[Rfam]
Background:
The family of this 182-nucleotide sequence from Streptomyces abyssalis is "c-di-AMP riboswitch aptamer (ydaO/yuaA leader)". The family has 106 seed sequences and 7,607 matches in Rfam 15.1. The organism belongs to Streptomyces, within Bacteria.
RNA sequence: GGCGGUCAUCCGCCGAGCCGCAGCAGGAGCCGGGGACCCACCGCGCACGCGCGAGGAACGGCGUACGCACCCGGGGUGAAUCGGGAAGUCGCACCGCGGAAGCACCGCGAACGACCCGUAGGGCAGCCUUCCGACGGCCCGAACCCGUCAGCUAACCCGGUAGGCGGUUCACGGAAGGAGUU
Numbered sequence: 001g002g003c004g005g006u007c008a009u010c011c012g013c014c015g016a017g018c019c020g021c022a023g024c025a026g027g028a029g030c031c032g033g034g035g036a037c038c039c040a041c042c043g044c045g046c047a048c049g050c051g052c053g054a055g056g057a058a059c060g061g062c063g064u065a066c067g068c069a070c071c072c073g074g075g076g077u078g079a080a081u082c083g084g085g086a087a088g089u090c091g092c093a094c095c096g097c098g099g100a101a102g103c104a105c106c107g108c109g110a111a112c113g114a115c116c117c118g119u120a121g122g123g124c125a126g127c128c129u130u131c132c133g134a135c136g137g138c139c140c141g142a143a144c145c146c147g148u149c150a151g152c153u154a155a156c157c158c159g160g161u162a163g164g165c166g167g168u169u170c171a172c173g174g175a176a177g178g179a180g181u182u
Stems, first nucleotide, its partner, number of pairs: 011166004019027001029161006039073001074146003082118004121140004